[Rfam]
Source information: Rfam assigns this 66-nucleotide RNA from Diachasma alloeum to the family "mir-33 microRNA precursor family". Taxonomically the source falls in Diachasma (Eukaryota, Insecta, Hymenoptera, Braconidae). Its family is annotated with gene silencing by miRNA and RISC complex in the Gene Ontology. The family has 73 seed sequences and 1,467 matches in Rfam 15.1.
Nucleotides: 066
Base pairs, nucleotide, nucleotide: 001066002065004063006062007059008058009057010056011055012054013053014052015051016050019047021045022044023043024042025041026040027039
Number, partner (000 for none) and nucleotide at each position: 001066c002065g003000a004063g005000u006062g007059u008058g009057c010056a011055u012054u013053g014052u015051a016050g017000u018000u019047g020000c021045a022044u023043u024042g025041c026040a027039u028000g029000a030000u031000a032000a033000g034000u035000g036000g037000c038000g039027g040026u041025g042024c043023a044022a045021u046000a047019c048000u049000u050016c051015u052014a053013c054012a055011g056010u057009g058008c059007a060000a061000c062006u063004c064000c065002u066001g